[Rfam]
RNA: U1A polyadenylation inhibition element (PIE)
Organism: Danionella cerebrum
Nucleotides: 075
Base pairs, nucleotide, nucleotide: 006052007051008050009049017047018046019045020044022036023035024034025033026032
Number, partner (000 for none) and nucleotide at each position: 001000u002000u003000a004000a005000a006052a007051a008050g009049c010000a011000u012000u013000g014000c015000a016000c017047c018046c019045a020044g021000a022036g023035u024034c025033u026032g027000g028000u029000u030000c031000u032026c033025a034024g035023a036022c037000a038000g039000u040000g041000u042000a043000c044020c045019u046018g047017g048000a049009g050008c051007u052006u053000g054000a055000u056000g057000g058000c059000u060000u061000u062000u063000a064000u065000u066000a067000a068000a069000u070000g071000u072000c073000u074000u075000u